[Rfam]
Record summary
Rfam assigns this 108-nucleotide RNA from Pontibacillus litoralis to the family "SAM riboswitch aptamer (S box leader)". The literature on the family includes a 2016 paper in Nucleic Acids Res by Huang et al., "A critical base pair in k-turns determines the conformational class adopted, and correlates with biological function". A search with the family's covariance model found it, with a score of 98 bits.
RNA sequence: CUCUUAUCCAGAGCGGUGGAGGGACUGGCCCUAUGAAACCCGGCAACCAUCAAACCAUGUUUGAAAGGUGCUAAAUCCUGCUAAGUAAUGUACUUAGAUAGAUGAGAG
Numbered sequence: 001c002u003c004u005u006a007u008c009c010a011g012a013g014c015g016g017u018g019g020a021g022g023g024a025c026u027g028g029c030c031c032u033a034u035g036a037a038a039c040c041c042g043g044c045a046a047c048c049a050u051c052a053a054a055c056c057a058u059g060u061u062u063g064a065a066a067g068g069u070g071c072u073a074a075a076u077c078c079u080g081c082u083a084a085g086u087a088a089u090g091u092a093c094u095u096a097g098a099u100a101g102a103u104g105a106g107a108g
Stems, first nucleotide, its partner, number of pairs: 001108008013041001015040003021031003025080001027078002042072004047068002050064004076100001081097006